[Rfam]
RNA: SAM riboswitch aptamer (S box leader)
RNA sequence: UCCUUAUAAAGAGUCGGGGAAGGAAACUGGUCCUAUGAUCCCGCGGCAACCGUUGCUUAAACGCAAAAUGGUGCUAAGUCCAGCAAGCUUAUUUAGCUUGAAAGAUAAGGG
Numbered sequence: 001u002c003c004u005u006a007u008a009a010a011g012a013g014u015c016g017g018g019g020a021a022g023g024a025a026a027c028u029g030g031u032c033c034u035a036u037g038a039u040c041c042c043g044c045g046g047c048a049a050c051c052g053u054u055g056c057u058u059a060a061a062c063g064c065a066a067a068a069u070g071g072u073g074c075u076a077a078g079u080c081c082a083g084c085a086a087g088c089u090u091a092u093u094u095a096g097c098u099u100g101a102a103a104g105a106u107a108a109g110g111g
Base pairs, nucleotide, nucleotide: 001111002110003109004108005107006106007105013044015043016042017041018040022033023032024031027083028082029081030080045075046074047073048072050071051070053066054065055064079103084100085099086098087097088096089095